[Rfam]
RNA: A. fumigatus sRNA Afu_309
Organism: Ophiobolus disseminans
RNA sequence: CUCUCACCACCGACCUGUGCCCGCGUUCCCGUCCACCCCCUGGGGUGUGUUUGGUCGAGCGCGUGCAGUUCGUCCGUCCUCAUGGAGCCAUCUCUUUUCAAUAGGUGUCAAUUUCUGGACGACAGGUCGCAGAGAAAGUCGGGCGCUGCUAUGAAGCCUGAGUUCGCCGCAAGGUUUGAGCUCGGUGGAUGGCGGCGUGCCAGGCGGACUGAUUCCUGUUCCCUUUUGCUAGGCCGUCGGCCCGUGAUGCUUGGGACAAACCCAGUCGGCUACAUAC
Numbered sequence: 001c002u003c004u005c006a007c008c009a010c011c012g013a014c015c016u017g018u019g020c021c022c023g024c025g026u027u028c029c030c031g032u033c034c035a036c037c038c039c040c041u042g043g044g045g046u047g048u049g050u051u052u053g054g055u056c057g058a059g060c061g062c063g064u065g066c067a068g069u070u071c072g073u074c075c076g077u078c079c080u081c082a083u084g085g086a087g088c089c090a091u092c093u094c095u096u097u098u099c100a101a102u103a104g105g106u107g108u109c110a111a112u113u114u115c116u117g118g119a120c121g122a123c124a125g126g127u128c129g130c131a132g133a134g135a136a137a138g139u140c141g142g143g144c145g146c147u148g149c150u151a152u153g154a155a156g157c158c159u160g161a162g163u164u165c166g167c168c169g170c171a172a173g174g175u176u177u178g179a180g181c182u183c184g185g186u187g188g189a190u191g192g193c194g195g196c197g198u199g200c201c202a203g204g205c206g207g208a209c210u211g212a213u214u215c216c217u218g219u220u221c222c223c224u225u226u227u228g229c230u231a232g233g234c235c236g237u238c239g240g241c242c243c244g245u246g247a248u249g250c251u252u253g254g255g256a257c258a259a260a261c262c263c264a265g266u267c268g269g270c271u272a273c274a275u276a277c
Base pairs, nucleotide, nucleotide: 011129012128013127014126015125016124017123018122019066020065022063023062025060026059027058028057029054030053031052033049034047035046036044037043038042075121076120077119078118079117083110084109085108087106088105089104138201140199144197145196146195147194148193149192158185159184160183161182162181163180164179165178166177167174168173206270207267208266209265210264211263220256221255222254223253228250229249232242233241234240235239